[Rfam]
RNA sequence: GACUCUGGAGAGCAUCCAUAACCGUUCGCCUGCUACUAGAAGCGAACGUUGUUAAUAAAAGGAUCACCCAAGGGGAAACUCGUGAGCAGCAUACGGGGUAACUCUCAGGUACCAAGGACAGAGCC
Numbered sequence: 001g002a003c004u005c006u007g008g009a010g011a012g013c014a015u016c017c018a019u020a021a022c023c024g025u026u027c028g029c030c031u032g033c034u035a036c037u038a039g040a041a042g043c044g045a046a047c048g049u050u051g052u053u054a055a056u057a058a059a060a061g062g063a064u065c066a067c068c069c070a071a072g073g074g075g076a077a078a079c080u081c082g083u084g085a086g087c088a089g090c091a092u093a094c095g096g097g098g099u100a101a102c103u104c105u106c107a108g109g110u111a112c113c114a115a116g117g118a119c120a121g122a123g124c125c
Stems, first nucleotide, its partner, number of pairs: 001125001003123005014064004066110003070105001073104003079097006